[Rfam]
RNA sequence: ACCGCAGGCCCGGGAGAGCCCGGCAUCGCCGCCAUGGCGGGGCCGGCGCCGAAGGAGCAACCGCCCCGGAAUCUCUCAGGCACCCGGACCGGGCCUGCGCA
Numbered sequence: 001a002c003c004g005c006a007g008g009c010c011c012g013g014g015a016g017a018g019c020c021c022g023g024c025a026u027c028g029c030c031g032c033c034a035u036g037g038c039g040g041g042g043c044c045g046g047c048g049c050c051g052a053a054g055g056a057g058c059a060a061c062c063g064c065c066c067c068g069g070a071a072u073c074u075c076u077c078a079g080g081c082a083c084c085c086g087g088a089c090c091g092g093g094c095c096u097g098c099g100c101a
Stems, first nucleotide, its partner, number of pairs: 006096008020046004048081003051077002055075003061069002

Rfam assigns this 101-nucleotide sequence from Pseudideonella sakaiensis to the family "Glycine riboswitch aptamer". This family represents the bacterial glycine riboswitch. Taxonomically the source falls in Pseudideonella (Bacteria, Pseudomonadati, Pseudomonadota, Betaproteobacteria).